Rfam assigns this 158-nucleotide RNA sequence from Glycine max to the family "MIR4371 microRNA precursor family". The base pairs follow the family's consensus structure, which was predicted with RNAalifold.
RNA sequence: UCGUUAAAUGAUGAUGUGAUAGACAAAGUGUCACGUCAUCAUGUCUUAUCACGAAUACCUCAUUGUCAUGUCAUCACCUUUAAUGAUAUGGCAAUGACGUGUCAAUGACAAAGUGUGAUCAAGUGAUACUUCGUUCGUCACAUCAUCACUUAACGAAA
Numbered sequence: 001u002c003g004u005u006a007a008a009u010g011a012u013g014a015u016g017u018g019a020u021a022g023a024c025a026a027a028g029u030g031u032c033a034c035g036u037c038a039u040c041a042u043g044u045c046u047u048a049u050c051a052c053g054a055a056u057a058c059c060u061c062a063u064u065g066u067c068a069u070g071u072c073a074u075c076a077c078c079u080u081u082a083a084u085g086a087u088a089u090g091g092c093a094a095u096g097a098c099g100u101g102u103c104a105a106u107g108a109c110a111a112a113g114u115g116u117g118a119u120c121a122a123g124u125g126a127u128a129c130u131u132c133g134u135u136c137g138u139c140a141c142a143u144c145a146u147c148a149c150u151u152a153a154c155g156a157a158a
Base pairs, nucleotide, nucleotide: 001156002155003154004153005152006151007150009148010147011146012145013144014143015142016141017140018139019138020137022135023134024133026131027130028129029128030127031126032125033124034123036121038119039118040117041116042115043114044113046111049108050107051106055102056101057100058099070087071086072085073084074083